The record is a 54-nucleotide sequence from Rhodobacteraceae bacterium 63075, which matches "sul1 RNA" in Rfam. It is annotated as a riboswitch. A search with the family's covariance model found it, with a score of 48 bits. Taxonomically the source falls in Paracoccaceae (Bacteria, Pseudomonadati, Pseudomonadota, Alphaproteobacteria).
RNA sequence: ACAGGACUCGGUACCUCCGAGUGGCUAAUCCGGGCGCCUACCCCCCGGCCACUA
Numbered sequence: 001a002c003a004g005g006a007c008u009c010g011g012u013a014c015c016u017c018c019g020a021g022u023g024g025c026u027a028a029u030c031c032g033g034g035c036g037c038c039u040a041c042c043c044c045c046c047g048g049c050c051a052c053u054a
Stems, first nucleotide, its partner, number of pairs: 006022006030048005
Dot-bracket structure: .....((((((.....)))))).......(((((.........)))))......